Record summary:
The family of this 163-nucleotide RNA from Streptococcus pseudoporcinus is "Streptococcus sRNA sagA". It is one of the family's seed sequences. Rfam classes the family as a small RNA.

RNA sequence: CGACUCAAUUACUAUUAGUAAUGUCUGUGUGAUAUUAUCUGGCAUAGAGGUGUGGGACGUAGGGGGCAGUAUAAUUAUUUUGGUUUUAGUGUCCCUUGGUAGUUAGCAGGUACUAUUUAGUUUAGUACCUGCUAAUUACUAUAUGUUUUGUAGAAUAAGAUAG
Numbered sequence: 001c002g003a004c005u006c007a008a009u010u011a012c013u014a015u016u017a018g019u020a021a022u023g024u025c026u027g028u029g030u031g032a033u034a035u036u037a038u039c040u041g042g043c044a045u046a047g048a049g050g051u052g053u054g055g056g057a058c059g060u061a062g063g064g065g066g067c068a069g070u071a072u073a074a075u076u077a078u079u080u081u082g083g084u085u086u087u088a089g090u091g092u093c094c095c096u097u098g099g100u101a102g103u104u105a106g107c108a109g110g111u112a113c114u115a116u117u118u119a120g121u122u123u124a125g126u127a128c129c130u131g132c133u134a135a136u137u138a139c140u141a142u143a144u145g146u147u148u149u150g151u152a153g154a155a156u157a158a159g160a161u162a163g
Stems, first nucleotide, its partner, number of pairs: 008022005025047003030042001055148003059144001063095006071087001073085004098140017